[Rfam]
RNA sequence: CUUCAGGGAUCCCAGCCACAGCGGUUCCGCGCGGUCCUGGCCGUACGUCGCCAGCAGCGCCUGCGCCUC
Numbered sequence: 001c002u003u004c005a006g007g008g009a010u011c012c013c014a015g016c017c018a019c020a021g022c023g024g025u026u027c028c029g030c031g032c033g034g035u036c037c038u039g040g041c042c043g044u045a046c047g048u049c050g051c052c053a054g055c056a057g058c059g060c061c062u063g064c065g066c067c068u069c
Base pairs, nucleotide, nucleotide: 014026015025016024017023028065029064030063032059033058037054038053039052041050043048
The record is a 69-nucleotide RNA from Streptomyces cyaneogriseus, which matches "ASpks TB sRNA" in Rfam. Taxonomically the source falls in Streptomyces cyaneogriseus (Bacteria, Actinomycetota, Streptomycetaceae, Streptomyces). By type it is an antisense RNA.